[Rfam]
RNA sequence: UGCCAUGAUGUCGUAAUUUGCGUCCGACUCUGUGCUCGGUGACAGUUGCCUGCUGUCAGUGUACCAGUACAGAUGGUUGACGAACACUUAAUGCUGAGCA
Numbered sequence: 001u002g003c004c005a006u007g008a009u010g011u012c013g014u015a016a017u018u019u020g021c022g023u024c025c026g027a028c029u030c031u032g033u034g035c036u037c038g039g040u041g042a043c044a045g046u047u048g049c050c051u052g053c054u055g056u057c058a059g060u061g062u063a064c065c066a067g068u069a070c071a072g073a074u075g076g077u078u079g080a081c082g083a084a085c086a087c088u089u090a091a092u093g094c095u096g097a098g099c100a
Stems, first nucleotide, its partner, number of pairs: 001100003021082004030072005039064002041057005

Shown here is a 100-nucleotide sequence from Podargus strigoides, a member of the family "Small nucleolar RNA SNORD16". The match comes from Rfam's covariance-model search (97 bits). The family's consensus secondary structure was predicted with PFOLD. The organism belongs to Podargus, within Eukaryota. The family's RNA type in Rfam is C/D-box small nucleolar RNA.